[Rfam]
RNA sequence: GAGAUACGCUUAUGGGGCAGGACUUGUUUCAGUGGAGCUUUGGCACUCACUGAGUCUGCCUCAUGAAUGUGUCACU
Number, nucleotide and partner (000 for none) at each position: 001g075002a000003g073004a072005u071006a070007c069008g000009c000010u066011u065012a064013u000014g062015g061016g060017g059018c058019a057020g000021g056022a055023c054024u000025u000026g000027u000028u000029u053030c052031a051032g050033u049034g048035g047036a000037g044038c043039u000040u000041u000042g000043g038044c037045a000046c000047u035048c034049a033050c032051u031052g030053a029054g023055u022056c021057u019058g018059c017060c016061u015062c014063a000064u012065g011066a010067a000068u000069g007070u006071g005072u004073c003074a000075c001076u000

mir-9229 microRNA precursor family: a 76-nucleotide RNA sequence from Cnephaeus nilssonii. It scores 82 bits against the family's covariance model. Pairs were carried over by alignment from the consensus structure, which was predicted with RNAalifold. The source organism's lineage runs through Eukaryota, Dipnotetrapodomorpha, Theria, Eutheria and Cnephaeus.